[Rfam]
RNA: RAGATH-18 RNA
RNA sequence: CCUGUGGAUCGUUAUACAAACGAAAGUAGUUGGAAUGAAAAUAUAUUCAUUUUAACAAAAUCGGACGGGAUGAAGCAGGAA
Numbered sequence: 001c002c003u004g005u006g007g008a009u010c011g012u013u014a015u016a017c018a019a020a021c022g023a024a025a026g027u028a029g030u031u032g033g034a035a036u037g038a039a040a041a042u043a044u045a046u047u048c049a050u051u052u053u054a055a056c057a058a059a060a061u062c063g064g065a066c067g068g069g070a071u072g073a074a075g076c077a078g079g080a081a
Base pairs, nucleotide, nucleotide: 001079002078003077004076005075009068010067011066012065013064021063022062023061029056030055031054032053033052034051035050036049037048038047039046
Dot-bracket structure: (((((...(((((.......(((.....(((((((((((......)))))))))))....))))))))......)))))..